Record summary:
Bacterial small signal recognition particle RNA: a 95-nucleotide RNA from Roseibacillus ishigakijimensis.
[Rfam]
RNA sequence: UGCCAGGGGCCGCGGAGUGUGGGCUGGUGAACCCGGUCAGGACGGAAACGUAGCAGCCGUAGCUUGUCCCCCAUUGCCGCGGUCCUCUGGUUUUU
Numbered sequence: 001u002g003c004c005a006g007g008g009g010c011c012g013c014g015g016a017g018u019g020u021g022g023g024c025u026g027g028u029g030a031a032c033c034c035g036g037u038c039a040g041g042a043c044g045g046a047a048a049c050g051u052a053g054c055a056g057c058c059g060u061a062g063c064u065u066g067u068c069c070c071c072c073a074u075u076g077c078c079g080c081g082g083u084c085c086u087c088u089g090g091u092u093u094u095u
Stems, first nucleotide, its partner, number of pairs: 004089005010082006016074001018073002021070002023067002026064003034059004042051003
It scores 62 bits against the family's covariance model. Lineage of the source: Bacteria > Pseudomonadati > Verrucomicrobiia > Verrucomicrobiales > Roseibacillus. Rfam classes the family as a non-coding RNA gene.